[Rfam]
RNA sequence: CUCUUAUUCCGAGUUGGCGGAGGGACAGACCCUAUGAAGCCCAGCAACCUCACACGCUUGUGAAAAGGUGCUUACCUGAAGCAAGGAUCAUUCCUUGAACAAUAAGAG
Numbered sequence: 001c002u003c004u005u006a007u008u009c010c011g012a013g014u015u016g017g018c019g020g021a022g023g024g025a026c027a028g029a030c031c032c033u034a035u036g037a038a039g040c041c042c043a044g045c046a047a048c049c050u051c052a053c054a055c056g057c058u059u060g061u062g063a064a065a066a067g068g069u070g071c072u073u074a075c076c077u078g079a080a081g082c083a084a085g086g087a088u089c090a091u092u093c094c095u096u097g098a099a100c101a102a103u104a105a106g107a108g
Stems, first nucleotide, its partner, number of pairs: 001108008013042001016041003022032003026081001029077001043072004048068002050063004082097006
The record is a 108-nucleotide sequence from Bacilli bacterium VT-13-104, which matches "SAM riboswitch aptamer (S box leader)" in Rfam. Gene Ontology term of the family: regulation of gene expression. A search with the family's covariance model found it, with a score of 68 bits. The organism belongs to Bacilli, within Bacteria. For this family Rfam cites "The S box regulon: a new global transcription termination control system for methionine and cysteine biosynthesis genes in gram-positive bacteria" (Grundy and Henkin, Mol Microbiol, 1998).